This 77-nucleotide sequence from Phascolarctos cinereus belongs to the Rfam family "Small nucleolar RNA SNORD66". It is annotated as a C/D-box small nucleolar RNA.
RNA sequence: CUUCACUGAUGAGCUCCUGUUGGUGCCAUUGUGUCUGAGCCACUGCAGCCUUGUGAUGGAGCUGAAGAGCUGAGGAG
Number, nucleotide and partner (000 for none) at each position: 001c077002u076003u075004c074005a000006c000007u000008g000009a000010u000011g000012a000013g000014c000015u000016c000017c000018u000019g000020u000021u000022g000023g000024u000025g000026c000027c000028a000029u000030u000031g000032u000033g000034u000035c000036u000037g000038a000039g000040c000041c000042a000043c000044u000045g000046c000047a000048g000049c000050c000051u000052u000053g000054u000055g000056a000057u000058g000059g000060a000061g000062c000063u000064g000065a000066a000067g000068a000069g000070c000071u000072g000073a000074g004075g003076a002077g001
From the family's description: snoRNA HBII-142 is part of the C/D family of snoRNAs. It is the human orthologue of the mouse MBII-142 snoRNA and is predicted to guide 2'O-ribose methylation of small 18S rRNA at residue C1272. The family's consensus secondary structure was predicted with RNAalifold. Gene Ontology terms of the family: nucleolus and RNA processing. The source organism's lineage runs through Eukaryota, Craniata, Gnathostomata, Phascolarctidae and Phascolarctos. For this family Rfam cites "RNomics: an experimental approach that identifies 201 candidates for novel, small, non-messenger RNAs in mouse" (Huttenhofer et al., EMBO J, 2001).